[Rfam]
RNA sequence: GCCGCUGUAGCUCAGUCGGUAGAGCAGUUCAUUCGUAAUGAAAAGGUCACCAGUUCGAUUCCGGUCAGCGGCA
Numbered sequence: 001g002c003c004g005c006u007g008u009a010g011c012u013c014a015g016u017c018g019g020u021a022g023a024g025c026a027g028u029u030c031a032u033u034c035g036u037a038a039u040g041a042a043a044a045g046g047u048c049a050c051c052a053g054u055u056c057g058a059u060u061c062c063g064g065u066c067a068g069c070g071g072c073a
Base pairs, nucleotide, nucleotide: 001072002071003070004069005068006067007066010025011024012023013022028042029041030040031039049065050064051063053061
The record is a 73-nucleotide sequence from a Methylophilaceae bacterium, which matches "tRNA" in Rfam.
The family's consensus secondary structure is taken from published work.